[Rfam]
RNA sequence: GCCUGAGGAGCGCUGCAACGGUUAGCAGAUAUUAACUCGCUAACCGCUAGGCUCAGGCAAUCAUUUAGAUUAACUGCGCUCAUUCAAU
Numbered sequence: 001g002c003c004u005g006a007g008g009a010g011c012g013c014u015g016c017a018a019c020g021g022u023u024a025g026c027a028g029a030u031a032u033u034a035a036c037u038c039g040c041u042a043a044c045c046g047c048u049a050g051g052c053u054c055a056g057g058c059a060a061u062c063a064u065u066u067a068g069a070u071u072a073a074c075u076g077c078g079c080u081c082a083u084u085c086a087a088u
Base pairs, nucleotide, nucleotide: 001058002057003056004055005054006053019046020045021044022043023042024041025040026039
Dot-bracket structure: ((((((............((((((((............))))))))......))))))..............................
Description: Rfam assigns this 88-nucleotide sequence to the family "SAH (S-adenosyl-L-homocysteine) riboswitch aptamer". Its family is annotated with S-adenosylhomocysteine metabolic process and regulation of gene expression in the Gene Ontology.